Shown here is a 57-nucleotide sequence from Populus alba, a member of the family "Plastid-rps18 3UTR RNA". From the family's description: Plastid rps18 is a non-coding RNA (ncRNA) present in plastids. It was identified as a short stem-loop motif in the 3 prime untranslate region (3UTR) of rps18 gene. For this family Rfam cites "Retrograde signaling in plants: A critical review focusing on the GUN pathway and beyond" (Richter et al., Plant Commun, 2023). The organism belongs to Populus, within Eukaryota. Rfam classes the family as a cis-regulatory element.
[Rfam]
RNA sequence: UGCAAGUAUUUUACUAUUAAGAAGAAACUGUCUUUUGUAUAAAUUAUUUAUUAAUAU
Numbered sequence: 001u002g003c004a005a006g007u008a009u010u011u012u013a014c015u016a017u018u019a020a021g022a023a024g025a026a027a028c029u030g031u032c033u034u035u036u037g038u039a040u041a042a043a044u045u046a047u048u049u050a051u052u053a054a055u056a057u
Stems, first nucleotide, its partner, number of pairs: 018037005024031001